[Rfam]
RNA sequence: CGUGUGGUGUUCAGCAUAGAACUGGAUAGCGACACGGCCUAUAAAUGAGGU
Numbered sequence: 001c002g003u004g005u006g007g008u009g010u011u012c013a014g015c016a017u018a019g020a021a022c023u024g025g026a027u028a029g030c031g032a033c034a035c036g037g038c039c040u041a042u043a044a045a046u047g048a049g050g051u
Base pairs, nucleotide, nucleotide: 001036002035003034004033005032007030008029011025012024013023014022015019

This 51-nucleotide RNA from Vibrio breoganii belongs to the Rfam family "L31-Gammaproteobacteria ribosomal protein leader". A reference for the family is Eckert and Weinberg (2020), "Discovery of 20 novel ribosomal leader candidates in bacteria and archaea", BMC Microbiol. The source organism's lineage runs through Bacteria, Pseudomonadota, Gammaproteobacteria, Vibrionales and Vibrio breoganii.